[Rfam]
Shown here is a 129-nucleotide RNA from Sphaeramia orbicularis, a member of the family "Small nucleolar RNA SNORA13".
RNA sequence: UGCCUUUGUGUUGCCCAUUCACAGUACUCUUUGUGAACAGGGUGUCAUCUAAGGCAUACAGUAACUCUUGUAGAUGUGACAGAAAUGCCUUAUCAGUGAUGCUUUUCUACACAAUCUGCCAGCACACAC
Dot-bracket structure: .(((((..((.((((..((((((........))))))...)))).))...)))))...........((.(((((......(((((...(........)....)).)))......))))).)).......
Numbered sequence: 001u002g003c004c005u006u007u008g009u010g011u012u013g014c015c016c017a018u019u020c021a022c023a024g025u026a027c028u029c030u031u032u033g034u035g036a037a038c039a040g041g042g043u044g045u046c047a048u049c050u051a052a053g054g055c056a057u058a059c060a061g062u063a064a065c066u067c068u069u070g071u072a073g074a075u076g077u078g079a080c081a082g083a084a085a086u087g088c089c090u091u092a093u094c095a096g097u098g099a100u101g102c103u104u105u106u107c108u109a110c111a112c113a114a115u116c117u118g119c120c121a122g123c124a125c126a127c128a129c
Stems, first nucleotide, its partner, number of pairs: 002055005009047002012044004018037006067122002070119005081108003084104002089098001
Taxonomically the source falls in Sphaeramia (Eukaryota, Teleostei, Eurypterygia, Apogonoidei). ACA13 is a member of the H/ACA class of snoRNA that guide the sites of modification of uridines to pseudouridines. By type it is an H/ACA-box small nucleolar RNA. Its Rfam clan is "SNORA13 clan". Its family is annotated with nucleolus and RNA processing in the Gene Ontology.